Small nucleolar RNA R12: an 85-nucleotide sequence from Coffea arabica. Rfam describes the family as follows. snoR12 is a C/D box small nucleolar RNA, which acts as a methylation guide for 25S ribosomal RNA in plants. snoR12 has been alternatively named snoZ44 in Arabidopsis and snoZ131 in rice. Its family is annotated with RNA processing and nucleolus in the Gene Ontology. Lineage of the source: Eukaryota > Viridiplantae > Spermatophyta > Gardenieae complex > Coffea. It scores 53 bits against the family's covariance model. It is annotated as a C/D-box small nucleolar RNA. For this family Rfam cites "The high diversity of snoRNAs in plants: identification and comparative study of 120 snoRNA genes from Oryza sativa" (Chen et al., Nucleic Acids Res, 2003). The family has 9 seed sequences and 992 matches in Rfam 15.1.
[Rfam]
RNA sequence: AUGGGAGUGAUGAAAAAAUCAAACGGAUUCCCAUUCAUCAUUCUCCGUAAGAAUGAUAAAAAACCACCAGCUACUUCUGACCCCA
Numbered sequence: 001a002u003g004g005g006a007g008u009g010a011u012g013a014a015a016a017a018a019u020c021a022a023a024c025g026g027a028u029u030c031c032c033a034u035u036c037a038u039c040a041u042u043c044u045c046c047g048u049a050a051g052a053a054u055g056a057u058a059a060a061a062a063a064c065c066a067c068c069a070g071c072u073a074c075u076u077c078u079g080a081c082c083c084c085a
Stems, first nucleotide, its partner, number of pairs: 002085004